[Rfam]
About this RNA: Rfam assigns this 125-nucleotide sequence from Acetivibrio ethanolgignens to the family "Fusobacteriales-1 RNA". By type it is a cis-regulatory element. NCBI's taxonomy places the organism under Bacteria, Bacillota, Clostridia, Acetivibrionales, Acetivibrio.
RNA sequence: UUCUACCUUUCGCAAUGUAGGACAAAAAACAUUGUAUUUUGUUUCAAAAAUGUUUCGCAAUGUGCAACAAGCAACAUUGUAUUAUGACACAAUUCCCUUUCGCAAUGUAGGACAAAAAACAUUGU
Number, nucleotide and partner (000 for none) at each position: 001u000002u000003c000004u000005a000006c021007c020008u019009u000010u000011c000012g035013c034014a033015a032016u031017g030018u029019a008020g007021g006022a000023c000024a000025a000026a000027a000028a000029a018030c017031a016032u015033u014034g013035u012036a000037u000038u000039u000040u000041g000042u000043u000044u000045c000046a000047a000048a000049a000050a000051u066052g065053u064054u000055u000056c000057g080058c079059a078060a077061u076062g075063u074064g053065c052066a051067a000068c000069a000070a000071g000072c000073a000074a063075c062076a061077u060078u059079g058080u057081a000082u000083u000084a000085u000086g000087a000088c000089a000090c000091a000092a000093u000094u000095c000096c111097c110098u109099u000100u000101c000102g125103c124104a123105a122106u121107g120108u119109a098110g097111g096112a000113c000114a000115a000116a000117a000118a000119a108120c107121a106122u105123u104124g103125u102